[Rfam]
RNA sequence: CAAUAAGCAAAGUAUUUGAACUGUAUUGUGUACCCAGCUUCUGGCUUAAGCACUAAAAAUGUGAGG
Numbered sequence: 001c002a003a004u005a006a007g008c009a010a011a012g013u014a015u016u017u018g019a020a021c022u023g024u025a026u027u028g029u030g031u032a033c034c035c036a037g038c039u040u041c042u043g044g045c046u047u048a049a050g051c052a053c054u055a056a057a058a059a060u061g062u063g064a065g066g
Stems, first nucleotide, its partner, number of pairs: 012033002026056002028053004037045002

Background: The family of this 66-nucleotide RNA from Pelagibacterales bacterium SAG-MED19 is "SAM-V (S-adenosyl methionine) riboswitch aptamer". From the family's description: SAM-V riboswitch is a cis-regulatory element that was recognised in marine bacteria it recognise S-adenosylmethione (SAM). The binding of SAM leads to the association of the triplex third strand in the aptamer of SAM-V riboswitch that stabilizes a short helix and occludes the ribosome binding site. Taxonomically the source falls in Candidatus Pelagibacterales (Bacteria, Pseudomonadati, Pseudomonadota, Alphaproteobacteria). Rfam 15.1 lists 23 matches to the family in 21 species. Its family is annotated with regulation of gene expression and S-adenosylmethionine metabolic process in the Gene Ontology. Pairs were carried over by alignment from the consensus structure, which is taken from published work.